This 137-nucleotide sequence from Centropus unirufus belongs to the Rfam family "Small Cajal body specific RNA 11". The source organism's lineage runs through Eukaryota, Chordata, Teleostomi, Amniota and Centropus. A reference for the family is Darzacq et al. (2002), "Cajal body-specific small nuclear RNAs: a novel class of 2'-O-methylation and pseudouridylation guide RNAs", EMBO J. The family's RNA type in Rfam is small Cajal body RNA. Its family is annotated with Cajal body, RNA processing and nucleolus in the Gene Ontology. The family has 24 seed sequences and 853 matches in Rfam 15.1.
[Rfam]
RNA sequence: GCGUCCUGGCCUUCUGAUUGUUCCCCUCACCAGAGCUGUGGUGGUGGGGGCUGGGGGUGGACGCAGAUCAACUCGCCUCUCGUGUUAGGAGGGCUGCCAAAGACAUGUGCAGGCCCUUAAAGGCAGGAGAGCACAUG
Numbered sequence: 001g002c003g004u005c006c007u008g009g010c011c012u013u014c015u016g017a018u019u020g021u022u023c024c025c026c027u028c029a030c031c032a033g034a035g036c037u038g039u040g041g042u043g044g045u046g047g048g049g050g051c052u053g054g055g056g057g058u059g060g061a062c063g064c065a066g067a068u069c070a071a072c073u074c075g076c077c078u079c080u081c082g083u084g085u086u087a088g089g090a091g092g093g094c095u096g097c098c099a100a101a102g103a104c105a106u107g108u109g110c111a112g113g114c115c116c117u118u119a120a121a122g123g124c125a126g127g128a129g130a131g132c133a134c135a136u137g
Stems, first nucleotide, its partner, number of pairs: 002063005010056002024050003028046005077131005085122002089118007096110002098107002